[Rfam]
Nucleotides: 093
Base pairs, nucleotide, nucleotide: 013046014045015044016043018041021093022092023091024090025089026088027087028040050082051081052080054078055077
Number, partner (000 for none) and nucleotide at each position: 001000a002000g003000c004000a005000g006000g007000u008000c009000c010000a011000c012000u013046g014045g015044g016043g017000c018041c019000a020000u021093a022092g023091c024090a025089g026088a027087a028040g029000c030000a031000g032000u033000u034000a035000c036000a037000u038000c039000a040028u041018g042000a043016c044015c045014c046013c047000u048000g049000u050082c051081a052080g053000a054078u055077a056000a057000u058000a059000c060000c061000u062000g063000g064000c065000g066000a067000u068000a069000c070000c071000c072000a073000g074000u075000a076000a077055u078054a079000c080052c081051u082050g083000c084000a085000a086000a087027u088026u089025c090024u091023g092022c093021u